[Rfam]
RNA: ffh sRNA
RNA sequence: ACUGAUCAAGAUCGCCACCAGUCAGCGAGUUUCGCCCACUGGUGUGUUUUGC
Numbered sequence: 001a002c003u004g005a006u007c008a009a010g011a012u013c014g015c016c017a018c019c020a021g022u023c024a025g026c027g028a029g030u031u032u033c034g035c036c037c038a039c040u041g042g043u044g045u046g047u048u049u050u051g052c
Stems, first nucleotide, its partner, number of pairs: 016044007025035004